[Rfam]
RNA sequence: UGGGUGGUCAGCAAGCGCGGGUCUGGCGGAGCGUGGUGGCGCGCGGAGACCGCAAGGCGACCGGGGGCGGCUGGGUCCCCGGCGGCGCGGCCCUCGGCCGGGCCGGGAGACGCGCCAGUCGGUGCCCCAGGCCGAGCGCGGCCCGCCUCCCUCUCAGCGAUCAUCCGUCAGGAGUGCGGCCAGCGGGCAUGCCAGAUCCACCAGGGGCGCCGCCGCCGGCGCUCGCAGGCCGCGGGUGAAGAAAGUGCAGCCUCGCUCGGCCCGGAGCGAAGAGGUGGCCCAGAACGAAGAGGUGGCUCGGAGCGAAGAGGUGGCCCGAAGUGAAGAAGUGGCCCAGAGCGAAGAGGUGGCCCAGAGCGAAGAGGUG
Numbered sequence: 001u002g003g004g005u006g007g008u009c010a011g012c013a014a015g016c017g018c019g020g021g022u023c024u025g026g027c028g029g030a031g032c033g034u035g036g037u038g039g040c041g042c043g044c045g046g047a048g049a050c051c052g053c054a055a056g057g058c059g060a061c062c063g064g065g066g067g068c069g070g071c072u073g074g075g076u077c078c079c080c081g082g083c084g085g086c087g088c089g090g091c092c093c094u095c096g097g098c099c100g101g102g103c104c105g106g107g108a109g110a111c112g113c114g115c116c117a118g119u120c121g122g123u124g125c126c127c128c129a130g131g132c133c134g135a136g137c138g139c140g141g142c143c144c145g146c147c148u149c150c151c152u153c154u155c156a157g158c159g160a161u162c163a164u165c166c167g168u169c170a171g172g173a174g175u176g177c178g179g180c181c182a183g184c185g186g187g188c189a190u191g192c193c194a195g196a197u198c199c200a201c202c203a204g205g206g207g208c209g210c211c212g213c214c215g216c217c218g219g220c221g222c223u224c225g226c227a228g229g230c231c232g233c234g235g236g237u238g239a240a241g242a243a244a245g246u247g248c249a250g251c252c253u254c255g256c257u258c259g260g261c262c263c264g265g266a267g268c269g270a271a272g273a274g275g276u277g278g279c280c281c282a283g284a285a286c287g288a289a290g291a292g293g294u295g296g297c298u299c300g301g302a303g304c305g306a307a308g309a310g311g312u313g314g315c316c317c318g319a320a321g322u323g324a325a326g327a328a329g330u331g332g333c334c335c336a337g338a339g340c341g342a343a344g345a346g347g348u349g350g351c352c353c354a355g356a357g358c359g360a361a362g363a364g365g366u367g
Stems, first nucleotide, its partner, number of pairs: 020104008038093002042089001043053004061082008144349006167188003171184001205224008254269005
Dot-bracket structure: ...................((((((((..........((..(((((...)))).......((((((((......))))))))......)..))...)))))))).......................................((((((.................(((.(............).)))................((((((((....)))))))).............................(((((......)))))..........................................................................))))))..................
Bag-1 internal ribosome entry site (IRES): a 367-nucleotide RNA sequence from Odobenus rosmarus. The base pairs follow the family's consensus structure, which was predicted with PFOLD. NCBI's taxonomy places the organism under Eukaryota, Eumetazoa, Bilateria, Deuterostomia, Odobenus rosmarus. On this family, see Coldwell et al., Oncogene 2001: "The p36 isoform of BAG-1 is translated by internal ribosome entry following heat shock". Rfam 15.1 lists 248 matches to the family in 165 species. Rfam links the family to the GO term ribosome binding.